Purine riboswitch aptamer: a 100-nucleotide sequence from Celerinatantimonas diazotrophica. Pairs were carried over by alignment from the consensus structure, which is taken from published work. Taxonomically the source falls in Celerinatantimonas (Bacteria, Pseudomonadati, Pseudomonadota, Celerinatantimonadaceae).
RNA sequence: GAUUGUGAUGGGAAAACACUUCGUAUAACCCCACUAAUAGGGUGUGGGGGUCUCUACCAGAUUCCGUAAAAUUCUGAUUACGAAGAGUAAAGUUCAAGAU
Numbered sequence: 001g002a003u004u005g006u007g008a009u010g011g012g013a014a015a016a017c018a019c020u021u022c023g024u025a026u027a028a029c030c031c032c033a034c035u036a037a038u039a040g041g042g043u044g045u046g047g048g049g050g051u052c053u054c055u056a057c058c059a060g061a062u063u064c065c066g067u068a069a070a071a072u073u074c075u076g077a078u079u080a081c082g083a084a085g086a087g088u089a090a091a092g093u094u095c096a097a098g099a100u
Stems, first nucleotide, its partner, number of pairs: 019085007029049006058076004063071001